malK-II RNA: a 50-nucleotide RNA from Vibrio nereis. By type it is a cis-regulatory element. The match comes from Rfam's covariance-model search (61 bits). NCBI's taxonomy places the organism under Bacteria, Pseudomonadota, Vibrionales, Vibrionaceae, Vibrio.
[Rfam]
RNA sequence: AUUCCUACAGUUACUGUCGUCGCAAUAAUUCAUAUAAUGUUCGGCAGUAA
Numbered sequence: 001a002u003u004c005c006u007a008c009a010g011u012u013a014c015u016g017u018c019g020u021c022g023c024a025a026u027a028a029u030u031c032a033u034a035u036a037a038u039g040u041u042c043g044g045c046a047g048u049a050a
Stems, first nucleotide, its partner, number of pairs: 011050008